The family of this 162-nucleotide RNA sequence from Fictibacillus arsenicus is "glmS glucosamine-6-phosphate activated ribozyme aptamer".
Taxonomically the source falls in Fictibacillus (Bacteria, Bacilli, Caryophanales, Fictibacillaceae).
By type it is a riboswitch.
Rfam's curators write: This entry contains a glucosamine-6-phosphate activated ribozyme that is found in the mRNA for GlmS. GlmS is an enzyme that uses fructose-6-phosphate and glutamine to generate glucosamine-6-phosphate. The ribozyme catalyses self cleavage of the glmS mRNA that is thought to regulate GlmS activity.
RNA sequence: UUCAUCCAAAAAGCGCCUGAACUGCUGACCGGAAAAAAGCAGUUGACGAGGAAGAGGUUCAUCGAUAUUUCGGCGGAUGCCUCUCGGAACAUUCACUUCCGUAAGCUUUUGUUCAAAUCAGGCAAGGUGACUUCCUGUACAAAGACGAAAGCAAGUGAAACC
Numbered sequence: 001u002u003c004a005u006c007c008a009a010a011a012a013g014c015g016c017c018u019g020a021a022c023u024g025c026u027g028a029c030c031g032g033a034a035a036a037a038a039g040c041a042g043u044u045g046a047c048g049a050g051g052a053a054g055a056g057g058u059u060c061a062u063c064g065a066u067a068u069u070u071c072g073g074c075g076g077a078u079g080c081c082u083c084u085c086g087g088a089a090c091a092u093u094c095a096c097u098u099c100c101g102u103a104a105g106c107u108u109u110u111g112u113u114c115a116a117a118u119c120a121g122g123c124a125a126g127g128u129g130a131c132u133u134c135c136u137g138u139a140c141a142a143a144g145a146c147g148a149a150a151g152c153a154a155g156u157g158a159a160a161c162c
Stems, first nucleotide, its partner, number of pairs: 020044007053084005062073004085101005105152007119137004124133003